[Rfam]
mir-316 microRNA precursor family: an 87-nucleotide sequence from Apis mellifera. The organism belongs to Apis, within Eukaryota. For this family Rfam cites "The small RNA profile during Drosophila melanogaster development" (Aravin et al., Dev Cell, 2003).
RNA sequence: GUGUGGCCGAGGGUGUGUCUUUUUCCGCUUUGCUGCCGCUGAAAUGGAGUCCGCCAGCAAAGGGGAACAGGCCGACCCUCCCGCACC
Numbered sequence: 001g002u003g004u005g006g007c008c009g010a011g012g013g014u015g016u017g018u019c020u021u022u023u024u025c026c027g028c029u030u031u032g033c034u035g036c037c038g039c040u041g042a043a044a045u046g047g048a049g050u051c052c053g054c055c056a057g058c059a060a061a062g063g064g065g066a067a068c069a070g071g072c073c074g075a076c077c078c079u080c081c082c083g084c085a086c087c
Stems, first nucleotide, its partner, number of pairs: 009080002012077002017072001019070002022067004028062003033057003037053002039049002